A member of the RNA family "Small nucleolar RNA SNORD56" from Cavia porcellus, 67 nucleotides long. The organism belongs to Cavia, within Eukaryota. Gene Ontology terms of the family: RNA processing and nucleolus. The family's RNA type in Rfam is C/D-box small nucleolar RNA. The family's consensus secondary structure was predicted with PFOLD.

RNA sequence: CUACAAUGAUGGUAAUAUUUUUCGUCAACAGAGUUCUAAUGAGUGUUGAUAUAUUGGGUCUGAGUGA
Numbered sequence: 001c002u003a004c005a006a007u008g009a010u011g012g013u014a015a016u017a018u019u020u021u022u023c024g025u026c027a028a029c030a031g032a033g034u035u036c037u038a039a040u041g042a043g044u045g046u047u048g049a050u051a052u053a054u055u056g057g058g059u060c061u062g063a064g065u066g067a
Base pairs, nucleotide, nucleotide: 002066003065004064008026009025010024011023